[Rfam]
RNA sequence: UCACACUAGGCGGGGAACUAGCGGUGCCCUGUAACCUGCAAUCCGCUACAGCAGGGCUGAAUUCCCCAAAGAGGUGCCAGAAUUUGGAGUCUGCCGCGGAUAAGCGGUGUUGACGGUUGGACCCUUCGCAAUAUGAACUUAUGAACCCUGUCAGGUCCGGAAGGAAGCAGCAGUAAGUAAGAUCUCGUAUGUGCCGGAGGACUCUCUGACAAGAGCUGGCUGUCCGCGUAACGUUUGGAGACUGGUUAUCAAUGCGGGGUGUGUGA
Dot-bracket structure: ((((((..(((((((.(((...))).))))....(((((...........)))))))).....((((..(..((((..((..((((((...((..((((((..(((((.......((((((.((((((((.(((((.(((((.....((((....(((....)))....))))...)))))...)))))))...))))))....))))))....))).)).)))))).))...))))))..))...))))..)..)))).))))))
The record is a 266-nucleotide RNA sequence from Eubacterium callanderi, which matches "Bacterial large signal recognition particle RNA" in Rfam. NCBI's taxonomy places the organism under Bacteria, Bacillota, Clostridia, Eubacteriaceae, Eubacterium. The family is grouped with related families in Rfam's "SRP clan". A search with the family's covariance model found it, with a score of 189 bits.